[Rfam]
RNA sequence: CAGGGCCGAUCCUCCUUCCUUAACUCACGCCGCUGUGCCUUUUUGUGUAUUUCGCACUUGCGUGAGUUGAGUACAGAGUGUCAGUCCA
Numbered sequence: 001c002a003g004g005g006c007c008g009a010u011c012c013u014c015c016u017u018c019c020u021u022a023a024c025u026c027a028c029g030c031c032g033c034u035g036u037g038c039c040u041u042u043u044u045g046u047g048u049a050u051u052u053c054g055c056a057c058u059u060g061c062g063u064g065a066g067u068u069g070a071g072u073a074c075a076g077a078g079u080g081u082c083a084g085u086c087c088a
Base pairs, nucleotide, nucleotide: 004086005085006084008082009081010080012078013077019071020070021069022068023067024066025065026064027063028062034056035055036054037053

Record summary: A member of the RNA family "mir-1426 microRNA precursor family" from Tricholaema leucomelas, 88 nucleotides long. The family's consensus secondary structure was predicted with RNAalifold.